The family of this 299-nucleotide RNA sequence from Papaver nudicaule is "Plant signal recognition particle RNA". The match comes from Rfam's covariance-model search (224 bits). The family's RNA type in Rfam is non-coding RNA gene. Its family is annotated with SRP-dependent cotranslational protein targeting to membrane, signal sequence recognition and signal recognition particle, endoplasmic reticulum targeting in the Gene Ontology.
RNA sequence: GUUGAGCUCGGUAGCGUGAGCUUGUGACCCAAGUGGGGACAUUAAGGUGGCUGAACACUGGUUCGGAUUCACUCGGUAGGUUCUAGCGUGCACACUUUGUUGACUCGCCCUUUCCAAGUUGGGAGUUGAGUUGCACGGCUCGGGCGUAGGCUUGGGCUGUGCGGUCACUGAAGUGGAGGGUAAUGCGUCAGGCUGGCUUCACAGAGCAGCGAUUACCUCCCUCUCUUGACAGUGGAAGGAUAACGAGUCGAUGUGCCCUAGUUCCAACUCAGCCUGGUGAGCCGCAUUCCCCGCCGCCU
Number, nucleotide and partner (000 for none) at each position: 001g040002u039003u038004g023005a022006g021007c020008u019009c018010g017011g000012u000013a000014g000015c000016g000017u010018g009019a008020g007021c006022u005023u004024g000025u000026g000027a000028c037029c036030c035031a000032a000033g000034u000035g030036g029037g028038g003039a002040c001041a000042u000043u000044a000045a299046g298047g297048u296049g295050g294051c293052u000053g291054a000055a000056c000057a000058c000059u000060g289061g288062u286063u000064c284065g283066g282067a000068u000069u280070c279071a278072c277073u276074c000075g274076g273077u272078a000079g265080g264081u000082u000083c261084u260085a259086g258087c000088g257089u000090g256091c255092a254093c000094a000095c000096u000097u000098u000099g000100u251101u250102g249103a248104c247105u246106c245107g244108c000109c239110c238111u000112u237113u236114c235115c234116a233117a000118g230119u229120u228121g227122g226123g225124a224125g223126u000127u000128g000129a000130g165131u164132u163133g162134c161135a160136c159137g158138g157139c156140u155141c154142g153143g152144g151145c150146g000147u000148a000149g000150g145151c144152u143153u142154g141155g140156g139157c138158u137159g136160u135161g134162c133163g132164g131165u130166c000167a000168c173169u000170g000171a000172a000173g168174u000175g220176g219177a218178g217179g216180g000181u000182a000183a000184u000185g000186c211187g210188u209189c000190a000191g000192g000193c204194u203195g202196g000197c000198u000199u000200c000201a000202c195203a194204g193205a000206g000207c000208a000209g188210c187211g186212a000213u000214u000215a000216c179217c178218u177219c176220c175221c000222u000223c125224u124225c123226u122227u121228g120229a119230c118231a000232g000233u116234g115235g114236a113237a112238g110239g109240a000241u000242a000243a000244c107245g106246a105247g104248u103249c102250g101251a100252u000253g000254u092255g091256c090257c088258c086259u085260a084261g083262u000263u000264c080265c079266a000267a000268c000269u000270c000271a000272g077273c076274c075275u000276g073277g072278u071279g070280a069281g000282c066283c065284g064285c000286a062287u000288u061289c060290c000291c053292c000293g051294c050295c049296g048297c047298c046299u045